[Rfam]
Rfam assigns this 59-nucleotide RNA sequence from Paramicrobacterium humi to the family "msiK RNA". The organism belongs to Paramicrobacterium, within Bacteria. Rfam classes the family as a cis-regulatory element.
RNA sequence: AGGUCCCGCUCCAUCACUCGGAUCGUCCGGCACGUACCUGCCGGUGAAGGAGAAACACU
Numbered sequence: 001a002g003g004u005c006c007c008g009c010u011c012c013a014u015c016a017c018u019c020g021g022a023u024c025g026u027c028c029g030g031c032a033c034g035u036a037c038c039u040g041c042c043g044g045u046g047a048a049g050g051a052g053a054a055a056c057a058c059u
Stems, first nucleotide, its partner, number of pairs: 010051003014047003027044006